[Rfam]
RNA sequence: GUGGUCCGGGGAACGGCGCCUGUGUUGUCGCACCUGCCCAGUGGCCUGUGCAGCCCGUACCAGGCAGCCCCACCCUGACCUAGAGUAAGUCCCGGGAGCCCUCCCGGGUCGGAAUUUUGCAGUAACAGGUGUGAGCACUCUGGCAGCCGCUUGGUGGUCAUGUAUGAUACUGCAAACAGGC
Numbered sequence: 001g002u003g004g005u006c007c008g009g010g011g012a013a014c015g016g017c018g019c020c021u022g023u024g025u026u027g028u029c030g031c032a033c034c035u036g037c038c039c040a041g042u043g044g045c046c047u048g049u050g051c052a053g054c055c056c057g058u059a060c061c062a063g064g065c066a067g068c069c070c071c072a073c074c075c076u077g078a079c080c081u082a083g084a085g086u087a088a089g090u091c092c093c094g095g096g097a098g099c100c101c102u103c104c105c106g107g108g109u110c111g112g113a114a115u116u117u118u119g120c121a122g123u124a125a126c127a128g129g130u131g132u133g134a135g136c137a138c139u140c141u142g143g144c145a146g147c148c149g150c151u152u153g154g155u156g157g158u159c160a161u162g163u164a165u166g167a168u169a170c171u172g173c174a175a176a177c178a179g180g181c
Stems, first nucleotide, its partner, number of pairs: 003080004008075003015069003019064004024060002027054002030051001032049002091108007116176009126166002132160003136156004142151003
RNA: Small Cajal body specific RNA 16
Organism: Marmota monax